[Rfam]
RNA sequence: GGUCAUGAGUGUCAGCGAUUUGCCCCGGCUCGCUGACCGGCAACCCUCCACCGUGGUGGGGUGCCCCGGGUGAAGACCUGGUACCGAACCGCCCGGUUUCGGUGCAAGCGCGGGCC
Numbered sequence: 001g002g003u004c005a006u007g008a009g010u011g012u013c014a015g016c017g018a019u020u021u022g023c024c025c026c027g028g029c030u031c032g033c034u035g036a037c038c039g040g041c042a043a044c045c046c047u048c049c050a051c052c053g054u055g056g057u058g059g060g061g062u063g064c065c066c067c068g069g070g071u072g073a074a075g076a077c078c079u080g081g082u083a084c085c086g087a088a089c090c091g092c093c094c095g096g097u098u099u100c101g102g103u104g105c106a107a108g109c110g111c112g113g114g115c116c
Base pairs, nucleotide, nucleotide: 001078002077003076004075009038011037012036013035014034015033016032022029039065040064041063044061045060046059048056049055081105082104083103084102085101086100087099088097089096090095

Description
A member of the RNA family "SAM (S-adenosyl methionine) riboswitch aptamer" from Arthrobacter alpinus, 116 nucleotides long. Its family is annotated with regulation of gene expression and S-adenosylmethionine metabolic process in the Gene Ontology. Lineage of the source: Bacteria > Bacillati > Actinomycetota > Actinomycetes > Arthrobacter.